This 67-nucleotide RNA from Ureibacillus yapensis belongs to the Rfam family "Bacillaceae-1 RNA". The match comes from Rfam's covariance-model search (77 bits). The organism belongs to Ureibacillus, within Bacteria. Pairs were carried over by alignment from the consensus structure, which is taken from published work.
RNA sequence: AACUAAUGAACUUAGACUAAGAACGCCACAUCCUGUGGCAAUGUCUAAGUGACCAACAUCCUGUUGG
Numbered sequence: 001a002a003c004u005a006a007u008g009a010a011c012u013u014a015g016a017c018u019a020a021g022a023a024c025g026c027c028a029c030a031u032c033c034u035g036u037g038g039c040a041a042u043g044u045c046u047a048a049g050u051g052a053c054c055a056a057c058a059u060c061c062u063g064u065u066g067g
Stems, first nucleotide, its partner, number of pairs: 011049007025039005053067005